A member of the RNA family "Lysine riboswitch aptamer" from Eubacteriaceae bacterium Marseille-Q4139, 180 nucleotides long. A reference for the family is Mandal et al. (2003), "Riboswitches Control Fundamental Biochemical Pathways in Bacillus subtilis and Other Bacteria", Cell.
RNA sequence: AGAAAAAGUAGAGGUCGCGCCUGACAUGAGGAAACCGGCGGAUGCGGGGGACAGAGAAGCCGGGGAAGGGGAUGGCGCCGAAGGCUGGUUCACUUCCCCAAAGGGGCUGUGCCUGGGCAUAUGGUGAAGAACCAUAUGACUGUCAUCUUAGUGCAGAUAAGGUGGAGGGCUACGUGAUUU
Numbered sequence: 001a002g003a004a005a006a007a008g009u010a011g012a013g014g015u016c017g018c019g020c021c022u023g024a025c026a027u028g029a030g031g032a033a034a035c036c037g038g039c040g041g042a043u044g045c046g047g048g049g050g051a052c053a054g055a056g057a058a059g060c061c062g063g064g065g066a067a068g069g070g071g072a073u074g075g076c077g078c079c080g081a082a083g084g085c086u087g088g089u090u091c092a093c094u095u096c097c098c099c100a101a102a103g104g105g106g107c108u109g110u111g112c113c114u115g116g117g118c119a120u121a122u123g124g125u126g127a128a129g130a131a132c133c134a135u136a137u138g139a140c141u142g143u144c145a146u147c148u149u150a151g152u153g154c155a156g157a158u159a160a161g162g163u164g165g166a167g168g169g170c171u172a173c174g175u176g177a178u179u180u
Stems, first nucleotide, its partner, number of pairs: 006175001008173004017078005025070001035063005082114004086109006115141002118138008143165007